[Rfam]
RNA sequence: ACAACCUGUAGUCCGCACUAGAGGCAGCUCCAUGAGCUACCUUUAGGAAGGUCUGAGAAUGCCAAGUUUUCUUGGUGCAAAGAAGAAGUGAGACCAUCUCGUAUGAUUUCACUCUUUCGGCAUCAAGAUCACUUCAGAAUCUUAGCGAUUCGCUUCGUAAUCCGAAGUGCAAACCAAGAGAAACGAUACGAUGAUGAAAAAAGAUGAUUCGCAAAUUUUCGAAUUCGAAAAACCGCAAAGCAUACGCAAGCGAUAAUCCGUAGUAGGGUUUGAUGUUAUGUUUUACGGACGUCUUCGAAUGCGAAUUCUAAAUCUCUCGGUGAAACGAUUAAGGUUUGUGGCUGGCUUAAGUGUAAAGUUCGAUGUGCGGAGUGAUCGAAUUUCCAUAGAAAUAAGAUCAUAACUCAAUUCAGACUACUCACGGGUUGU
Number, nucleotide and partner (000 for none) at each position: 001a429002c428003a427004a426005c000006c000007u423008g422009u421010a000011g000012u371013c370014c369015g368016c367017a366018c365019u000020a044021g043022a042023g041024g040025c000026a038027g037028c036029u035030c034031c000032a000033u000034g030035a029036g028037c027038u026039a000040c024041c023042u022043u021044u020045a000046g000047g000048a000049a000050g000051g000052u000053c413054u412055g411056a410057g409058a000059a000060u000061g342062c341063c340064a000065a000066g000067u000068u000069u000070u000071c000072u000073u000074g000075g000076u000077g000078c000079a000080a000081a000082g000083a000084a000085g000086a000087a000088g000089u000090g000091a000092g000093a000094c000095c000096a000097u000098c000099u000100c000101g000102u000103a000104u000105g000106a000107u000108u000109u000110c000111a000112c000113u000114c000115u000116u000117u000118c000119g000120g000121c000122a000123u000124c000125a000126a000127g000128a000129u000130c000131a000132c000133u000134u000135c000136a000137g151138a150139a149140u148141c147142u000143u000144a000145g000146c000147g141148a140149u139150u138151c137152g168153c167154u166155u165156c164157g163158u000159a000160a000161u000162c000163c157164g156165a155166a154167g153168u152169g339170c338171a337172a336173a335174c334175c333176a000177a000178g000179a000180g000181a000182a000183a000184c000185g000186a000187u000188a000189c319190g318191a317192u000193g000194a000195u000196g000197a000198a000199a000200a000201a000202a000203g000204a000205u000206g000207a000208u000209u000210c000211g000212c000213a000214a000215a000216u000217u000218u000219u000220c000221g000222a000223a000224u000225u000226c000227g000228a000229a000230a000231a000232a000233c000234c000235g000236c000237a000238a000239a000240g000241c000242a000243u000244a000245c000246g000247c000248a000249a000250g000251c000252g000253a000254u000255a000256a000257u000258c000259c000260g000261u000262a000263g000264u000265a000266g000267g000268g000269u000270u000271u000272g000273a000274u000275g000276u000277u000278a000279u000280g000281u000282u000283u000284u000285a000286c000287g000288g000289a000290c000291g000292u000293c000294u000295u000296c000297g000298a000299a000300u000301g000302c000303g000304a000305a000306u000307u000308c000309u000310a000311a000312a000313u000314c000315u000316c000317u191318c190319g189320g000321u000322g000323a000324a000325a000326c000327g000328a000329u000330u000331a000332a000333g175334g174335u173336u172337u171338g170339u169340g063341g062342c061343u000344g000345g000346c000347u000348u000349a000350a000351g000352u000353g000354u000355a000356a000357a000358g000359u000360u000361c000362g000363a000364u000365g018366u017367g016368c015369g014370g013371a012372g401373u400374g399375a398376u397377c396378g000379a000380a000381u000382u000383u000384c000385c000386a000387u000388a000389g000390a000391a000392a000393u000394a000395a000396g377397a376398u375399c374400a373401u372402a000403a000404c000405u000406c000407a000408a000409u057410u056411c055412a054413g053414a000415c000416u000417a000418c000419u000420c000421a009422c008423g007424g000425g000426u004427u003428g002429u001

A member of the RNA family "Nuclear RNase P" from Sarcoptes scabiei, 429 nucleotides long. It scores 73 bits against the family's covariance model. About the family: Ribonuclease P (RNase P) is a ubiquitous endoribonuclease, found in archaea, bacteria and eukarya as well as chloroplasts and mitochondria. Its best characterised activity is the generation of mature 5'-ends of tRNAs by cleaving the 5'-leader elements of precursor-tRNAs. Cellular RNase Ps are ribonucleoproteins. RNA from bacterial RNase Ps retains its catalytic activity in the absence of the protein subunit, i.e. it is a ribozyme. Rfam classes the family as a ribozyme.